[Rfam]
RNA: c-di-AMP riboswitch aptamer (ydaO/yuaA leader)
Organism: Blastococcus sp. DSM 46786
RNA sequence: CGCCCGGAAGCGUCGAACACGACGGGCAGGCGCGGGGGACCCACCGUUCGUGGCCCUCCGGGACCUCGGGGUGAAGCCGCGCCGUGCGCGGCCGGGCAGCUCUCGCCCGAACCCGACAGCUAACCCCGCAGGCGGCGAGAGGCUCA
Numbered sequence: 001c002g003c004c005c006g007g008a009a010g011c012g013u014c015g016a017a018c019a020c021g022a023c024g025g026g027c028a029g030g031c032g033c034g035g036g037g038g039a040c041c042c043a044c045c046g047u048u049c050g051u052g053g054c055c056c057u058c059c060g061g062g063a064c065c066u067c068g069g070g071g072u073g074a075a076g077c078c079g080c081g082c083c084g085u086g087c088g089c090g091g092c093c094g095g096g097c098a099g100c101u102c103u104c105g106c107c108c109g110a111a112c113c114c115g116a117c118a119g120c121u122a123a124c125c126c127c128g129c130a131g132g133c134g135g136c137g138a139g140a141g142g143c144u145c146a
Base pairs, nucleotide, nucleotide: 001134002133003132004131010031011030032129033128034127035126036125037124042068069114070113071112077091078090079089080088094108095107096106097105